[Rfam]
RNA sequence: AGCUUUGCGCAGAGGCAGUGUCGCAUCCAAUGAAGUGCCAACUGAGGAGCGACUAUUGCUAGUUGAAAACUUUUCCCAAUACCCCGCCUCGACGACGUGAAAUACUGUCGGCCGUGGCAAUUUUUGGAAGGCCUUCACAGGC
Dot-bracket structure: ...................(((((.(((.....(((....)))..))))))))................................((((.(.((((((.....)).)))).).).)))............((((....))))
This 142-nucleotide RNA sequence from Rhipicephalus microplus belongs to the Rfam family "U4 spliceosomal RNA". Lineage of the source: Eukaryota > Eumetazoa > Bilateria > Ixodida > Boophilus. It is annotated as a spliceosomal small nuclear RNA. The literature on the family includes a 2018 paper in Cell Res by Zhan et al., "Structures of the human pre-catalytic spliceosome and its precursor spliceosome". Rfam describes the family as follows. U4 small nuclear RNA (U4 snRNA) is a component of the major U2-dependent spliceosome.